[Rfam]
The family of this 76-nucleotide RNA from Chlorobaculum tepidum is "S6-S18-Chlorobi ribosomal protein leader".
It is one of the family's seed sequences.
The base pairs follow the family's consensus structure, which is taken from published work.

RNA sequence: ACGCGAAUGGUGUUCGUGCGUCCGCAUGAAGCCGUGAAAGCAGGGAUGCGCAAUACCUGUUUUCCGCCAUUUGCAC
Dot-bracket structure: ..(((((((((((((((((....))))))).....((((.((((...........)))).))))))))))))))..